[Rfam]
RNA sequence: AUUUCUGUUAAGCUCCAGUUAAGCUUUACAAGUGUUUACUAUACACAUCCAGACAUUCUGGAUUUGACAGUUUGACGAUUGGUCACACUGUUUGACGCCUCCCUGUUAAACUCUUGAGAGCCGCUUCUGCGGCUCUUUUUUU
Numbered sequence: 001a002u003u004u005c006u007g008u009u010a011a012g013c014u015c016c017a018g019u020u021a022a023g024c025u026u027u028a029c030a031a032g033u034g035u036u037u038a039c040u041a042u043a044c045a046c047a048u049c050c051a052g053a054c055a056u057u058c059u060g061g062a063u064u065u066g067a068c069a070g071u072u073u074g075a076c077g078a079u080u081g082g083u084c085a086c087a088c089u090g091u092u093u094g095a096c097g098c099c100u101c102c103c104u105g106u107u108a109a110a111c112u113c114u115u116g117a118g119a120g121c122c123g124c125u126u127c128u129g130c131g132g133c134u135c136u137u138u139u140u141u142u
Stems, first nucleotide, its partner, number of pairs: 001042002005012001021035001023033003047063004070088002073085003094107004116137009
Dot-bracket structure: ((..(......)........(.(((.....))).).....))....((((.........))))......((.(((.......))).)).....((((......))))........(((((((((....))))))))).....

Description: This 142-nucleotide sequence from Parahoeflea phototrophica belongs to the Rfam family "Alphaproteobacterial sRNA BjrC1505". By type it is a small RNA. The source organism's lineage runs through Bacteria, Alphaproteobacteria, Hyphomicrobiales, Parahoeflea and Parahoeflea phototrophica. The literature on the family includes a 2012 paper in RNA Biol by Madhugiri et al., "Small RNAs of the Bradyrhizobium/Rhodopseudomonas lineage and their analysis".